This 200-nucleotide RNA from Oryza punctata belongs to the Rfam family "MIR1435 microRNA precursor family". The family has 3 seed sequences and 1,765 matches in Rfam 15.1. The organism belongs to Oryza, within Eukaryota. It scores 110 bits against the family's covariance model.

[Rfam]
RNA sequence: UGGGUUUGUCCUAAGCUAAACUUCUUCACGUUUGACAAACUUUAUAGAAAAGUUCAGCAGCAUUUCCAACACAAAACAAAUAUAAUACGAAACUAUAUUCAAUGGUGAACUUAACGAAACUAAUUUUAUGCUGUAGAUGUCACUAUGUUUUUCUAUAAACUUGGUCAAACUUGAAGGAGUUUGACUUAGGACAAACCCGA
Numbered sequence: 001u002g003g004g005u006u007u008g009u010c011c012u013a014a015g016c017u018a019a020a021c022u023u024c025u026u027c028a029c030g031u032u033u034g035a036c037a038a039a040c041u042u043u044a045u046a047g048a049a050a051a052g053u054u055c056a057g058c059a060g061c062a063u064u065u066c067c068a069a070c071a072c073a074a075a076a077c078a079a080a081u082a083u084a085a086u087a088c089g090a091a092a093c094u095a096u097a098u099u100c101a102a103u104g105g106u107g108a109a110c111u112u113a114a115c116g117a118a119a120c121u122a123a124u125u126u127u128a129u130g131c132u133g134u135a136g137a138u139g140u141c142a143c144u145a146u147g148u149u150u151u152u153c154u155a156u157a158a159a160c161u162u163g164g165u166c167a168a169a170c171u172u173g174a175a176g177g178a179g180u181u182u183g184a185c186u187u188a189g190g191a192c193a194a195a196c197c198c199g200a
Base pairs, nucleotide, nucleotide: 005195006194007193008192009191011189012188013187014186015185017183018182019181020180021179022178023177024176025175026174031169032168033167034166035165045155046154047153048152049151050150051149052148056144057143060140061139062138063137064136065135067133068132073127074126075125076124